[Rfam]
RNA sequence: ACGGAAGCUUGGAGAGGCCAAGCUCGAGCCGGAAGAGAAGGCUCGAUCUCCCGAUCCGGGCUCCCUAGCACGGCUCCCGGGCACCCACGCGGAGCCCAUGCCGCGGAAUAGGCAAAAGUGUUGCGGGCCUGCGUAAUUGCGGAGAGCGGGCGACCACGACGACCCUUUGGGUGGGGUCGCAGUCGUAGCGCAUCGCAAGGGCGCCGAGGCCAACCCACGCAACCCAAUCAGCACGCUUGGUAACCGGGGUCCGUGCUAGCGGGCGGCGAGCCGAUCAGAUUCGGACCGUCGCCCGCUUUCAAUU
Numbered sequence: 001a002c003g004g005a006a007g008c009u010u011g012g013a014g015a016g017g018c019c020a021a022g023c024u025c026g027a028g029c030c031g032g033a034a035g036a037g038a039a040g041g042c043u044c045g046a047u048c049u050c051c052c053g054a055u056c057c058g059g060g061c062u063c064c065c066u067a068g069c070a071c072g073g074c075u076c077c078c079g080g081g082c083a084c085c086c087a088c089g090c091g092g093a094g095c096c097c098a099u100g101c102c103g104c105g106g107a108a109u110a111g112g113c114a115a116a117a118g119u120g121u122u123g124c125g126g127g128c129c130u131g132c133g134u135a136a137u138u139g140c141g142g143a144g145a146g147c148g149g150g151c152g153a154c155c156a157c158g159a160c161g162a163c164c165c166u167u168u169g170g171g172u173g174g175g176g177u178c179g180c181a182g183u184c185g186u187a188g189c190g191c192a193u194c195g196c197a198a199g200g201g202c203g204c205c206g207a208g209g210c211c212a213a214c215c216c217a218c219g220c221a222a223c224c225c226a227a228u229c230a231g232c233a234c235g236c237u238u239g240g241u242a243a244c245c246g247g248g249g250u251c252c253g254u255g256c257u258a259g260c261g262g263g264c265g266g267c268g269a270g271c272c273g274a275u276c277a278g279a280u281u282c283g284g285a286c287c288g289u290c291g292c293c294c295g296c297u298u299u300c301a302a303u304u
Stems, first nucleotide, its partner, number of pairs: 003065002006062007016052002021049002025045006066258008077247003081244001085240003089236003094232002099114004120223006126211005131204004137198006146191003150186005160179007259296010271284003
RNA: Mycobacterium smegmatis small RNA 1
Organism: Mycolicibacterium agri